[Rfam]
RNA: Purine riboswitch aptamer
RNA sequence: UUCUAAAAACUAAUUUUAACUCGUAUAAUCGCGGGAAUAUGGCUCGCAAGUCUCUACCGAACUACCGUAAAUAGUUCGCCUACGAGUGAGAUAUAUACGGUC
Numbered sequence: 001u002u003c004u005a006a007a008a009a010c011u012a013a014u015u016u017u018a019a020c021u022c023g024u025a026u027a028a029u030c031g032c033g034g035g036a037a038u039a040u041g042g043c044u045c046g047c048a049a050g051u052c053u054c055u056a057c058c059g060a061a062c063u064a065c066c067g068u069a070a071a072u073a074g075u076u077c078g079c080c081u082a083c084g085a086g087u088g089a090g091a092u093a094u095a096u097a098c099g100g101u102c
Stems, first nucleotide, its partner, number of pairs: 019087007029049001031047005058078007